The family of this 100-nucleotide RNA sequence from Parazoarcus communis is "Guanidine-I riboswitch aptamer". Pairs were carried over by alignment from the consensus structure.

RNA sequence: GAAAUAGAUGACUAGGGUUCCGGCCUGCGCGAGCAGGUGUCUGGUCCGAGAGUUGUCGACCUCUUUCGAGGUUACACGGCGGGACAAAAGCCCGGGAGAA
Numbered sequence: 001g002a003a004a005u006a007g008a009u010g011a012c013u014a015g016g017g018u019u020c021c022g023g024c025c026u027g028c029g030c031g032a033g034c035a036g037g038u039g040u041c042u043g044g045u046c047c048g049a050g051a052g053u054u055g056u057c058g059a060c061c062u063c064u065u066u067c068g069a070g071g072u073u074a075c076a077c078g079g080c081g082g083g084a085c086a087a088a089a090g091c092c093c094g095g096g097a098g099a100a
Base pairs, nucleotide, nucleotide: 007057008056009055010054011053012052015047016046020044021043022041023038024037025036026035027034028033058073059072060071061070062069063068075095077098081093082092083091